This 265-nucleotide sequence from Thermoanaerobacteraceae bacterium SP2 belongs to the Rfam family "Bacterial large signal recognition particle RNA". Rfam links the family to the GO terms SRP-dependent cotranslational protein targeting to membrane, signal sequence recognition and signal recognition particle, plasma membrane targeting. Rfam classes the family as a non-coding RNA gene. The literature on the family includes a 2002 paper in Nucleic Acids Res by Regalia et al., "Prediction of signal recognition particle RNA genes". Clan: SRP clan. NCBI's taxonomy places the organism under Bacteria, Bacillota, Clostridia, Thermoanaerobacterales, Thermoanaerobacteraceae.
[Rfam]
RNA sequence: CCGUGCUAGACGGGGAGGCAGCGGUGCCCUGUACCCACAAUCCGCUACAGUGGGGUCGAACUCCCUCCCGAGGUCUUAUUCCUGUGGGGUCUGGCUUUGACAAGUGGUGACGAGGGCUGGGUCCCGCGCAAUGGAAACUUUCGAACCCCGUCAGGUCCGGGAGGAAGCAGCGGUAAGGAAGCCCUUUCAUGUGCCGCGGGGAAGCCUGGCCGGAGCUAACUAUCAUUGUAACGCCCGGAGGGAUAGAUCGACGGAGGGUGCACGG
Numbered sequence: 001c002c003g004u005g006c007u008a009g010a011c012g013g014g015g016a017g018g019c020a021g022c023g024g025u026g027c028c029c030u031g032u033a034c035c036c037a038c039a040a041u042c043c044g045c046u047a048c049a050g051u052g053g054g055g056u057c058g059a060a061c062u063c064c065c066u067c068c069c070g071a072g073g074u075c076u077u078a079u080u081c082c083u084g085u086g087g088g089g090u091c092u093g094g095c096u097u098u099g100a101c102a103a104g105u106g107g108u109g110a111c112g113a114g115g116g117c118u119g120g121g122u123c124c125c126g127c128g129c130a131a132u133g134g135a136a137a138c139u140u141u142c143g144a145a146c147c148c149c150g151u152c153a154g155g156u157c158c159g160g161g162a163g164g165a166a167g168c169a170g171c172g173g174u175a176a177g178g179a180a181g182c183c184c185u186u187u188c189a190u191g192u193g194c195c196g197c198g199g200g201g202a203a204g205c206c207u208g209g210c211c212g213g214a215g216c217u218a219a220c221u222a223u224c225a226u227u228g229u230a231a232c233g234c235c236c237g238g239a240g241g242g243a244u245a246g247a248u249c250g251a252c253g254g255a256g257g258g259u260g261c262a263c264g265g
Stems, first nucleotide, its partner, number of pairs: 001265006009057003012030004017025001019023001034054005063258006072249005079243005085237004092230002098225003104220002106217003115211008123200006129191002132189005138181005148173004156165003
Dot-bracket structure: ((((((..(((((((.(.(...).).))))...(((((...........)))))))).....((((((...(((((..(((((.((((...((....(((...(((((......((((((((((((((((.(((((.(((((.....((((....(((....)))....))))...)))))...)))))))...))))))...))))))))...))).))..)))...))...)))).))))).)))))...)))))).))))))